[Rfam]
RNA: Small nucleolar RNA SNORD11B
RNA sequence: UGAUGGCAGUGAUGAUUUUUCAACUAUUGUUCACCUGAUAGAUAAAUAUGAGGGUGUUCAGUCACUACCUCAUCUGAUGCCAUCU
Numbered sequence: 001u002g003a004u005g006g007c008a009g010u011g012a013u014g015a016u017u018u019u020u021c022a023a024c025u026a027u028u029g030u031u032c033a034c035c036u037g038a039u040a041g042a043u044a045a046a047u048a049u050g051a052g053g054g055u056g057u058u059c060a061g062u063c064a065c066u067a068c069c070u071c072a073u074c075u076g077a078u079g080c081c082a083u084c085u
Base pairs, nucleotide, nucleotide: 002084003083004082005081006080007079